[Rfam]
RNA sequence: AAUGGAGAAUUCCGAAAGGAUCGCAUGAUCUGAAGAUUAAAGAAAGUCUAAUUAAUUAAAUCAUCAGAUCAAUGCGAUCCCUUUGGAAUUCUCCAU
Numbered sequence: 001a002a003u004g005g006a007g008a009a010u011u012c013c014g015a016a017a018g019g020a021u022c023g024c025a026u027g028a029u030c031u032g033a034a035g036a037u038u039a040a041a042g043a044a045a046g047u048c049u050a051a052u053u054a055a056u057u058a059a060a061u062c063a064u065c066a067g068a069u070c071a072a073u074g075c076g077a078u079c080c081c082u083u084u085g086g087a088a089u090u091c092u093c094c095a096u
Stems, first nucleotide, its partner, number of pairs: 002096005008090009018080004023075003026071008